[Rfam]
RNA sequence: UUCCAUAAUUUAGUUUUGUUCAUCUGUAGACUAGACACAAUAAAAUAUUUCUACUUUCCUAGCCAUGGAAGAGCAUUUUCUUGUUUAUUGGCAAAGCUGUCACCAUUUAAUUGGUAUCAGAUUCUGACUUGCACAAGUAACAUUC
Numbered sequence: 001u002u003c004c005a006u007a008a009u010u011u012a013g014u015u016u017u018g019u020u021c022a023u024c025u026g027u028a029g030a031c032u033a034g035a036c037a038c039a040a041u042a043a044a045a046u047a048u049u050u051c052u053a054c055u056u057u058c059c060u061a062g063c064c065a066u067g068g069a070a071g072a073g074c075a076u077u078u079u080c081u082u083g084u085u086u087a088u089u090g091g092c093a094a095a096g097c098u099g100u101c102a103c104c105a106u107u108u109a110a111u112u113g114g115u116a117u118c119a120g121a122u123u124c125u126g127a128c129u130u131g132c133a134c135a136a137g138u139a140a141c142a143u144u145c
Base pairs, nucleotide, nucleotide: 002069003068004067005066006065012055013054014053082142083141084140085139088136089135090134091132092131093130094129097120098119099118102115103114104113105112